[Rfam]
RNA sequence: GGAGUUGGCCAGACAGUCGCCGCCGCGCCUUGUGUGCGGGGGAGGAAAGUCCGGGCUCCAUAGGGCAGAGUGCCAGGUAACGCCUGGGCGGCGUGAGCCGACGGAAAGUGCAGCAGAGAGUAGACCGCCUAAGCCUUUCGAGGCCGGUAAGGGUGAAAGGGUGCGGUAAGAGCGCACCGCACGGCUGGUAACAGUGCGUGGCAAGGUAAACCCCACUCGGAGCAAGACCAAAUAGGGACCCAAUGGCGUGGCCCGCGCUGGGUCCGGGUAGGUUGCUUGAGCGCUGCGGUGACGUAGCGCCUAGAGGAAUGGCUGUCUUAGACAGAACCCGGCUUAUCGGCCGACUCCCCUC
Numbered sequence: 001g002g003a004g005u006u007g008g009c010c011a012g013a014c015a016g017u018c019g020c021c022g023c024c025g026c027g028c029c030u031u032g033u034g035u036g037c038g039g040g041g042g043a044g045g046a047a048a049g050u051c052c053g054g055g056c057u058c059c060a061u062a063g064g065g066c067a068g069a070g071u072g073c074c075a076g077g078u079a080a081c082g083c084c085u086g087g088g089c090g091g092c093g094u095g096a097g098c099c100g101a102c103g104g105a106a107a108g109u110g111c112a113g114c115a116g117a118g119a120g121u122a123g124a125c126c127g128c129c130u131a132a133g134c135c136u137u138u139c140g141a142g143g144c145c146g147g148u149a150a151g152g153g154u155g156a157a158a159g160g161g162u163g164c165g166g167u168a169a170g171a172g173c174g175c176a177c178c179g180c181a182c183g184g185c186u187g188g189u190a191a192c193a194g195u196g197c198g199u200g201g202c203a204a205g206g207u208a209a210a211c212c213c214c215a216c217u218c219g220g221a222g223c224a225a226g227a228c229c230a231a232a233u234a235g236g237g238a239c240c241c242a243a244u245g246g247c248g249u250g251g252c253c254c255g256c257g258c259u260g261g262g263u264c265c266g267g268g269u270a271g272g273u274u275g276c277u278u279g280a281g282c283g284c285u286g287c288g289g290u291g292a293c294g295u296a297g298c299g300c301c302u303a304g305a306g307g308a309a310u311g312g313c314u315g316u317c318u319u320a321g322a323c324a325g326a327a328c329c330c331g332g333c334u335u336a337u338c339g340g341c342c343g344a345c346u347c348c349c350c351u352c
Stems, first nucleotide, its partner, number of pairs: 001348010011337001012317007020042002023039006047335003051332005056222004063254004068218005073087005088102001089100004103213002108211002110207002125152002127148003133144004160178006179202001180200004185194003226274004236265006245259005281300008
A member of the RNA family "Bacterial RNase P class A" from Vreelandella azerica, 352 nucleotides long.
NCBI's taxonomy places the organism under Bacteria, Pseudomonadati, Oceanospirillales, Halomonadaceae, Vreelandella.
It scores 338 bits against the family's covariance model.
It is annotated as a ribozyme.
Rfam describes the family as follows. Ribonuclease P (RNase P) is a ubiquitous endoribonuclease, found in archaea, bacteria and eukarya as well as chloroplasts and mitochondria.